[Rfam]
RNA: c-di-GMP-I riboswitch aptamer
RNA sequence: AUAAUGUAAAAGCAAACUCGCGGGAAACCCGAGGACGCAAAGCUAUGGGUCUACGUCUUCGAAAAAAAGGAUAAGACAGCCGGUUGCCAUG
Numbered sequence: 001a002u003a004a005u006g007u008a009a010a011a012g013c014a015a016a017c018u019c020g021c022g023g024g025a026a027a028c029c030c031g032a033g034g035a036c037g038c039a040a041a042g043c044u045a046u047g048g049g050u051c052u053a054c055g056u057c058u059u060c061g062a063a064a065a066a067a068a069g070g071a072u073a074a075g076a077c078a079g080c081c082g083g084u085u086g087c088c089a090u091g
Stems, first nucleotide, its partner, number of pairs: 012038002017033004022029002041085004047081002049077003056071004